[Rfam]
RNA sequence: UGGCGGUCUGGCGAUGGAUCCCGCCUGGGCGCUGGUGCCCGAACCGCCGACCGGCCGAUGGUUCCUGUGCGUCG
Numbered sequence: 001u002g003g004c005g006g007u008c009u010g011g012c013g014a015u016g017g018a019u020c021c022c023g024c025c026u027g028g029g030c031g032c033u034g035g036u037g038c039c040c041g042a043a044c045c046g047c048c049g050a051c052c053g054g055c056c057g058a059u060g061g062u063u064c065c066u067g068u069g070c071g072u073c074g
Stems, first nucleotide, its partner, number of pairs: 010025004016065003020061002046055003